[Rfam]
RNA sequence: AAUCUUUAUUCGCUGAAUCCGCCGGGAGCGGGGGAACCAAUUCUGUGAUGAUCAGCAUCACUUGGGGUGAAUCCUUCAACGUAAGGACGGGCUACUCUCAUGGCCCGAAUCCGACAGCUAACCUCGUAAGCGUUAAGAGAGAGGAUGU
Numbered sequence: 001a002a003u004c005u006u007u008a009u010u011c012g013c014u015g016a017a018u019c020c021g022c023c024g025g026g027a028g029c030g031g032g033g034g035a036a037c038c039a040a041u042u043c044u045g046u047g048a049u050g051a052u053c054a055g056c057a058u059c060a061c062u063u064g065g066g067g068u069g070a071a072u073c074c075u076u077c078a079a080c081g082u083a084a085g086g087a088c089g090g091g092c093u094a095c096u097c098u099c100a101u102g103g104c105c106c107g108a109a110u111c112c113g114a115c116a117g118c119u120a121a122c123c124u125c126g127u128a129a130g131c132g133u134u135a136a137g138a139g140a141g142a143g144g145a146u147g148u
Stems, first nucleotide, its partner, number of pairs: 011132004018027003028127006038064002065112003073086004089106004